[Rfam]
RNA sequence: CGCAUGGGGAAAGCGAUCUCCCCACGAGGCGACAUGCCCAAGAAUCGCGUCCAGUUUUCGCCAAGGACGCAGCAUG
Numbered sequence: 001c002g003c004a005u006g007g008g009g010a011a012a013g014c015g016a017u018c019u020c021c022c023c024a025c026g027a028g029g030c031g032a033c034a035u036g037c038c039c040a041a042g043a044a045u046c047g048c049g050u051c052c053a054g055u056u057u058u059c060g061c062c063a064a065g066g067a068c069g070c071a072g073c074a075u076g
Stems, first nucleotide, its partner, number of pairs: 005024006047070006

The record is a 76-nucleotide RNA sequence, which matches "chrB-a RNA" in Rfam. It is one of the family's seed sequences. By type it is a cis-regulatory element.